Rfam assigns this 89-nucleotide RNA from Rhamnella rubrinervis to the family "Small nucleolar RNA R32/R81/Z41". For this family Rfam cites "Identification of 66 box C/D snoRNAs in Arabidopsis thaliana: extensive gene duplications generated multiple isoforms predicting new ribosomal RNA 2'-O-methylation sites" (Barneche et al., J Mol Biol, 2001).
[Rfam]
RNA sequence: AUUCGAAUAUGAUGAAAGCAAUUGACGGGUGAUGAUUGUAUAUUUACGCAUGAUCAAAAUCUACUCGCUACGUUCUUUCUGAUUCGUAU
Dot-bracket structure: ...((((...........................................................................))))...
About this RNA:
Rfam classes the family as a C/D-box small nucleolar RNA.